Shown here is a 79-nucleotide sequence from Daphnia pulex, a member of the family "mir-219 microRNA precursor family". Taxonomically the source falls in Daphnia (Eukaryota, Altocrustacea, Phyllopoda, Cladocera). Rfam's curators put it in the seed alignment. The base pairs follow the family's consensus structure, which was predicted with RNAalifold.
RNA sequence: UUGCAGGCCCUGAUUGUCCAAACGCAAUUCUUGUACAAAUAUAAUAUCAAGAAAUGUGUAGGGGCAUCGUUGCUUGCAC
Numbered sequence: 001u002u003g004c005a006g007g008c009c010c011u012g013a014u015u016g017u018c019c020a021a022a023c024g025c026a027a028u029u030c031u032u033g034u035a036c037a038a039a040u041a042u043a044a045u046a047u048c049a050a051g052a053a054a055u056g057u058g059u060a061g062g063g064g065c066a067u068c069g070u071u072g073c074u075u076g077c078a079c
Stems, first nucleotide, its partner, number of pairs: 002078006011069004016065004023058004028053006